L2-Alphaproteobacteria ribosomal protein leader: a 71-nucleotide sequence from Mesobaculum littorinae. For this family Rfam cites "Discovery of 20 novel ribosomal leader candidates in bacteria and archaea" (Eckert and Weinberg, BMC Microbiol, 2020). By type it is a cis-regulatory leader. Taxonomically the source falls in Mesobaculum (Bacteria, Pseudomonadati, Pseudomonadota, Rhodobacterales).
RNA sequence: GGGCGCGUUUUCGGACGCGCCUUUCCCUAACUGGCCCGGCAACGGGCCGCGAAGCAGACGGAAGACAGAAA
Number, nucleotide and partner (000 for none) at each position: 001g022002g021003g020004c019005g018006c017007g016008u015009u014010u000011u000012c000013g000014g009015a008016c007017g006018c005019g004020c003021c002022u001023u000024u000025c000026c000027c000028u000029a000030a000031c000032u000033g048034g047035c046036c045037c044038g043039g000040c000041a000042a000043c038044g037045g036046g035047c034048c033049g000050c000051g000052a000053a000054g000055c000056a000057g000058a000059c000060g000061g000062a000063a000064g000065a000066c000067a000068g000069a000070a000071a000